[Rfam]
RNA sequence: GCACUCAGAUCUUUCCCAGUCCCGCUGCUUGGUGCCAGUCUGGGGACAGGCAGUGCUACAGUACAGCAGAGGAUAUCCAGACAGGUCAUUUUCCGUUUAUCCUGGGGCCUGUCUCUACAGCUCUGCCACACUU
Numbered sequence: 001g002c003a004c005u006c007a008g009a010u011c012u013u014u015c016c017c018a019g020u021c022c023c024g025c026u027g028c029u030u031g032g033u034g035c036c037a038g039u040c041u042g043g044g045g046a047c048a049g050g051c052a053g054u055g056c057u058a059c060a061g062u063a064c065a066g067c068a069g070a071g072g073a074u075a076u077c078c079a080g081a082c083a084g085g086u087c088a089u090u091u092u093c094c095g096u097u098u099a100u101c102c103u104g105g106g107g108c109c110u111g112u113c114u115c116u117a118c119a120g121c122u123c124u125g126c127c128a129c130a131c132u133u
Base pairs, nucleotide, nucleotide: 001056002055003054004053005052013046014045015044016043017042018041019040021038066126067125068124069123070122071121079114080113081112082111083110084109085108086107093105094104095103
Notes:
The family of this 133-nucleotide RNA from Neotoma lepida is "Small nucleolar RNA SNORA55". ACA55 is a member of the H/ACA class of snoRNA that guide the sites of modification of uridines to pseudouridines. Its family is annotated with nucleolus and RNA processing in the Gene Ontology. It is annotated as an H/ACA-box small nucleolar RNA.